About this RNA
The record is a 133-nucleotide RNA from Aotus nancymaae, which matches "Small nucleolar RNA SNORA71" in Rfam. Taxonomically the source falls in Aotus (Eukaryota, Opisthokonta, Craniata, Platyrrhini). Pairs were carried over by alignment from the consensus structure, which was predicted with PFOLD.
RNA sequence: GCCUGCAUGUGUAAGUGAUCACAGCUGCCCAUGUCCUGGUCAUUGAUAGUGCAGGCAGAGGAAAUGUGGGAAAUGUUGUCCAGUGUUUGGAGGGUCCACAUUGUCACCUUCGUGUCCCAGGAGCUUUCCUACA
Numbered sequence: 001g002c003c004u005g006c007a008u009g010u011g012u013a014a015g016u017g018a019u020c021a022c023a024g025c026u027g028c029c030c031a032u033g034u035c036c037u038g039g040u041c042a043u044u045g046a047u048a049g050u051g052c053a054g055g056c057a058g059a060g061g062a063a064a065u066g067u068g069g070g071a072a073a074u075g076u077u078g079u080c081c082a083g084u085g086u087u088u089g090g091a092g093g094g095u096c097c098a099c100a101u102u103g104u105c106a107c108c109u110u111c112g113u114g115u116c117c118c119a120g121g122a123g124c125u126u127u128c129c130u131a132c133a
Stems, first nucleotide, its partner, number of pairs: 001056008014044008024035001025033001066130001068129005074123001085116001088114002090111005
Its family is annotated with nucleolus and RNA processing in the Gene Ontology. About the family: The members of this family belong to the H/ACA class of snoRNAs which bind a number of proteins (including dyskerin, Gar1p and Nop10p) to form snoRNP complexes. This class of snoRNAs are thought to guide the sites of modification of uridines to pseudouridines by forming direct base pairing interactions with substrate RNAs. This family includes U71 (SNORA71), ACA39 (SNORA39) and ACA60 (SNORA60). U71 and ACA60 are predicted to guide the pseudouridylation of U406 and U1004 in 18S rRNA respectively. On this family, see Ganot et al., Genes Dev 1997: "The family of box ACA small nucleolar RNAs is defined by an evolutionarily conserved secondary structure and ubiquitous sequence elements essential for RNA accumulation". A search with the family's covariance model found it, with a score of 81 bits.